[Rfam]
RNA: nuoG RNA
Organism: Tatumella morbirosei
RNA sequence: GUAUUAUGUUUAACGCUCGUGCCGGCACGAGCCUUACGGAAG
Numbered sequence: 001g002u003a004u005u006a007u008g009u010u011u012a013a014c015g016c017u018c019g020u021g022c023c024g025g026c027a028c029g030a031g032c033c034u035u036a037c038g039g040a041a042g
Base pairs, nucleotide, nucleotide: 015032016031017030018029019028020027021026